[Rfam]
This 279-nucleotide RNA sequence belongs to the Rfam family "RT-2 RNA".
Rfam classes the family as a small RNA.
The sequence is in the family's curated seed alignment.
RNA sequence: GGGGCGAGUAUACAGUAGGCAUUUUCAUAAUGCAGAAAUCAAGACCCCUUGAAAUUUUUUAUUUUAUGGAAGGAGGACAUAACCGUCCUACAGUGAAAGUGGGUAAAUAUAUGCCUUGACGCGGUUGGCCGGACGCUGCUUGCAUGGUCGGGGAUGGCGAUAAUAUACGCUGAAUGGAAUCCAGCUAAGUACCCGAUUGCAUGACCAUUACCGCAAAGAAGAACACAACGCGCCCCUACAAUAACACUUCGCGAGGUAUUUAUCUUUAUGAACAGUGAG
Numbered sequence: 001g002g003g004g005c006g007a008g009u010a011u012a013c014a015g016u017a018g019g020c021a022u023u024u025u026c027a028u029a030a031u032g033c034a035g036a037a038a039u040c041a042a043g044a045c046c047c048c049u050u051g052a053a054a055u056u057u058u059u060u061a062u063u064u065u066a067u068g069g070a071a072g073g074a075g076g077a078c079a080u081a082a083c084c085g086u087c088c089u090a091c092a093g094u095g096a097a098a099g100u101g102g103g104u105a106a107a108u109a110u111a112u113g114c115c116u117u118g119a120c121g122c123g124g125u126u127g128g129c130c131g132g133a134c135g136c137u138g139c140u141u142g143c144a145u146g147g148u149c150g151g152g153g154a155u156g157g158c159g160a161u162a163a164u165a166u167a168c169g170c171u172g173a174a175u176g177g178a179a180u181c182c183a184g185c186u187a188a189g190u191a192c193c194c195g196a197u198u199g200c201a202u203g204a205c206c207a208u209u210a211c212c213g214c215a216a217a218g219a220a221g222a223a224c225a226c227a228a229c230g231c232g233c234c235c236c237u238a239c240a241a242u243a244a245c246a247c248u249u250c251g252c253g254a255g256g257u258a259u260u261u262a263u264c265u266u267u268a269u270g271a272a273c274a275g276u277g278a279g
Base pairs, nucleotide, nucleotide: 004046019033020032021031022030023029087103088102089101090100111259112258113257114256115255116254117253118252120251121214122213123212124211125210126207127206128205130203135143136142146198147197148196149195150194151193152192218250219249220248221247